Background:
Shown here is a 131-nucleotide RNA sequence from Blastococcus sp. DSM 46786, a member of the family "c-di-AMP riboswitch aptamer (ydaO/yuaA leader)".
RNA sequence: ACCCUGCCGUCGCCCGGACCGGGGACCCACCGAAGUUCUGGGGUGAAGCGCCACCGGCCAGUCCGGGGCGCCGGGCGCGUUCCCCGCCCGAACCCGUCAGCUCACCCGGUAGGCGGUCACGGAGAACAGGA
Numbered sequence: 001a002c003c004c005u006g007c008c009g010u011c012g013c014c015c016g017g018a019c020c021g022g023g024g025a026c027c028c029a030c031c032g033a034a035g036u037u038c039u040g041g042g043g044u045g046a047a048g049c050g051c052c053a054c055c056g057g058c059c060a061g062u063c064c065g066g067g068g069c070g071c072c073g074g075g076c077g078c079g080u081u082c083c084c085c086g087c088c089c090g091a092a093c094c095c096g097u098c099a100g101c102u103c104a105c106c107c108g109g110u111a112g113g114c115g116g117u118c119a120c121g122g123a124g125a126a127c128a129g130g131a
Base pairs, nucleotide, nucleotide: 002113003112007017008016009015018110019109020108021107022106023105028040029039041095042094043093049070050069051068052067073089074088075087076086